[Rfam]
Annotation
sok antitoxin (CssrC): a 154-nucleotide RNA from Providencia rustigianii. By type it is an antitoxin RNA. Also identified in Shigella as CssrC. Pairs were carried over by alignment from the consensus structure, which is taken from published work. It is one of the family's seed sequences. A reference for the family is Kawano et al. (2007), "An antisense RNA controls synthesis of an SOS-induced toxin evolved from an antitoxin", Mol Microbiol. Its family is annotated with mRNA binding in the Gene Ontology.
RNA sequence: GAUUGCUUUCCCCUAUCUGGUUCAAGCAUUUAGUGAGAGCCAGAAAGAAGAAAGCCCCGAUAUAGUAGUUGUACUAUUAUCGAGGCUGCAAUUCUUAACUUAUCAUUUUGAAUUGCGCCUCCUUAUUUAUAAGGAGUCAAGGAAAAUGACCAAG
Number, nucleotide and partner (000 for none) at each position: 001g058002a000003u000004u000005g055006c054007u053008u052009u000010c000011c000012c000013c047014u046015a000016u044017c043018u042019g041020g040021u039022u038023c037024a000025a000026g034027c033028a000029u000030u000031u000032a000033g027034u026035g000036a000037g023038a022039g021040c020041c019042a018043g017044a016045a000046a014047g013048a000049a000050g000051a000052a008053a007054g006055c005056c000057c000058c001059g081060a080061u000062a000063u000064a000065g078066u000067a000068g075069u000070u000071g000072u000073a000074c000075u068076a000077u000078u065079a000080u060081c059082g121083a120084g119085g118086c117087u000088g000089c115090a114091a113092u112093u111094c110095u000096u000097a107098a000099c000100u000101u000102a000103u000104c000105a000106u000107u097108u000109u000110g094111a093112a092113u091114u090115g089116c000117g086118c085119c084120u083121c082122c000123u000124u000125a000126u148127u000128u146129a000130u144131a000132a000133g000134g000135a000136g000137u000138c000139a000140a000141g000142g000143a000144a130145a000146a128147u000148g126149a000150c000151c000152a000153a000154g000